RNA sequence: AAAGUGGUUAAUGAUGAACUUUCUUUCCCCGACUUAUCGACAAUGGUGAAAGAAUAGUUGCUUAAGCCAAACUCUUUUCUGAAACCACUUU
Numbered sequence: 001a002a003a004g005u006g007g008u009u010a011a012u013g014a015u016g017a018a019c020u021u022u023c024u025u026u027c028c029c030c031g032a033c034u035u036a037u038c039g040a041c042a043a044u045g046g047u048g049a050a051a052g053a054a055u056a057g058u059u060g061c062u063u064a065a066g067c068c069a070a071a072c073u074c075u076u077u078u079c080u081g082a083a084a085c086c087a088c089u090u091u
Stems, first nucleotide, its partner, number of pairs: 001091009
Dot-bracket structure: (((((((((.........................................................................)))))))))
This 91-nucleotide RNA sequence from Cyprinodon variegatus belongs to the Rfam family "Small nucleolar SNORD12/SNORD106".
The match comes from Rfam's covariance-model search (51 bits).
On this family, see Huttenhofer et al., EMBO J 2001: "RNomics: an experimental approach that identifies 201 candidates for novel, small, non-messenger RNAs in mouse".
The family's consensus secondary structure was predicted with RNAalifold.